[Rfam]
RNA sequence: AAUGCUGUGAUGAGAUGAGCACCGUACCUUUGGUGUUUUGGGCAGUGGGUAAAAUAAAGUUUGAUUUUUAAUCCUCCUCCGUGAGCCCUCAGCUCUAAUUAACGAUUUCUGCUUCCACUGAACAUU
Dot-bracket structure: ((((......................................................................................................................))))

Overview:
Rfam assigns this 126-nucleotide RNA from Ipomoea nil to the family "Small nucleolar RNA Z152/R70/R12/". The source organism's lineage runs through Eukaryota, Spermatophyta, Pentapetalae, Convolvulaceae and Ipomoea. A search with the family's covariance model found it, with a score of 51 bits. By type it is a C/D-box small nucleolar RNA. The literature on the family includes a 2001 paper in J Mol Biol by Barneche et al., "Identification of 66 box C/D snoRNAs in Arabidopsis thaliana: extensive gene duplications generated multiple isoforms predicting new ribosomal RNA 2'-O-methylation sites". Pairs were carried over by alignment from the consensus structure, which was predicted with PFOLD.